[Rfam]
RNA sequence: UUCCCGUUAAUGAAGACUACACAGAAAACCUUUCUGAGGAUUUGUGUGGAUCUGAUAUCCGGCAAA
Numbered sequence: 001u002u003c004c005c006g007u008u009a010a011u012g013a014a015g016a017c018u019a020c021a022c023a024g025a026a027a028a029c030c031u032u033u034c035u036g037a038g039g040a041u042u043u044g045u046g047u048g049g050a051u052c053u054g055a056u057a058u059c060c061g062g063c064a065a066a
Stems, first nucleotide, its partner, number of pairs: 001065002004062001015052002017049008030039003
Shown here is a 66-nucleotide sequence from Equus asinus, a member of the family "Selenocysteine insertion sequence 1". It scores 35 bits against the family's covariance model. Pairs were carried over by alignment from the consensus structure, which is taken from published work. The family's RNA type in Rfam is cis-regulatory element.